[Rfam]
RNA: Caenorhabditis snoRNA ceN108
Organism: Caenorhabditis remanei
RNA sequence: GUGCGAUGACUGAUUUGGAUAAGUUUCGGCUGAUAAUUAUUGAUGCCAACUUUUGAAUAUUGCUGAGCAC
Dot-bracket structure: ((((..............................................................))))